[Rfam]
RNA sequence: CGGCUAGCCCCAUCUGGAAGACUAGUGAUUUUGUUGUUGUUUCACUUCUCAACAACAAGUCCCAGUCUGCCGCAUGGUGCUGGCCC
Numbered sequence: 001c002g003g004c005u006a007g008c009c010c011c012a013u014c015u016g017g018a019a020g021a022c023u024a025g026u027g028a029u030u031u032u033g034u035u036g037u038u039g040u041u042u043c044a045c046u047u048c049u050c051a052a053c054a055a056c057a058a059g060u061c062c063c064a065g066u067c068u069g070c071c072g073c074a075u076g077g078u079g080c081u082g083g084c085c086c
Stems, first nucleotide, its partner, number of pairs: 002085007010077004015072003019068005025063001027061005033056006
This 86-nucleotide sequence from Urocitellus parryii belongs to the Rfam family "mir-7 microRNA precursor family". The literature on the family includes a 2001 paper in Science by Lagos-Quintana et al., "Identification of novel genes coding for small expressed RNAs". Rfam's curators write: This family represents the microRNA (miRNA) precursor mir-7. The family's consensus secondary structure was predicted with PFOLD. Lineage of the source: Eukaryota > Amniota > Mammalia > Boreoeutheria > Urocitellus. Rfam 15.1 lists 2,589 matches to the family in 797 species.